[Rfam]
RNA sequence: CCGUUUAACUCGUUUCCUCCUUGAAGGAAACUACUGGAG
Numbered sequence: 001c002c003g004u005u006u007a008a009c010u011c012g013u014u015u016c017c018u019c020c021u022u023g024a025a026g027g028a029a030a031c032u033a034c035u036g037g038a039g
Stems, first nucleotide, its partner, number of pairs: 001036001003034002012031007